About this RNA:
mir-129 microRNA precursor family: a 75-nucleotide RNA sequence from Danionella cerebrum. The family's consensus secondary structure was predicted with RNAalifold.
[Rfam]
RNA sequence: UCAGGUCUUUUUGCGGUCUGGGCUUGCUGUUCUUUGAACCAAUAGCCAGGAAGCCCUUACCCCAAAAAGUAUCUG
Numbered sequence: 001u002c003a004g005g006u007c008u009u010u011u012u013g014c015g016g017u018c019u020g021g022g023c024u025u026g027c028u029g030u031u032c033u034u035u036g037a038a039c040c041a042a043u044a045g046c047c048a049g050g051a052a053g054c055c056c057u058u059a060c061c062c063c064a065a066a067a068a069g070u071a072u073c074u075g
Stems, first nucleotide, its partner, number of pairs: 007069007015061003020056004025051001027049002
A reference for the family is Lagos-Quintana et al. (2002), "Identification of tissue-specific microRNAs from mouse", Curr Biol. The family has 56 seed sequences and 1,242 matches in Rfam 15.1.